A member of the RNA family "Rhizobiales sRNA Atu_C8" from Pelagibacterium luteolum, 119 nucleotides long.
A reference for the family is Wilms et al. (2012), "Deep sequencing uncovers numerous small RNAs on all four replicons of the plant pathogen Agrobacterium tumefaciens", RNA Biol.
The family's RNA type in Rfam is small RNA.

RNA sequence: CGUGAAGACGGCAAUUAUUCUUGUAGUACGCAGGCGCAUCGCAACAUGAGGGCAUAACCCUCGUGCGAAAUGCGGUGCGCUGAUCCAGGUCCCAAACGGGGCCUUUUUUAUUGGCUGAA
Numbered sequence: 001c002g003u004g005a006a007g008a009c010g011g012c013a014a015u016u017a018u019u020c021u022u023g024u025a026g027u028a029c030g031c032a033g034g035c036g037c038a039u040c041g042c043a044a045c046a047u048g049a050g051g052g053c054a055u056a057a058c059c060c061u062c063g064u065g066c067g068a069a070a071u072g073c074g075g076u077g078c079g080c081u082g083a084u085c086c087a088g089g090u091c092c093c094a095a096a097c098g099g100g101g102c103c104u105u106u107u108u109u110a111u112u113g114g115c116u117g118a119a
Base pairs, nucleotide, nucleotide: 009026030115031114033081034080035079036078037077038076039075040074041073042072047063048062049061050060051059052058087104088103089102090101091100092099093098
Dot-bracket structure: ........(................)...((.((((((((((....((((((.....))))))........)))))))))).....(((((((....))))))).........))....

The base pairs follow the family's consensus structure, which was predicted with CMfinder.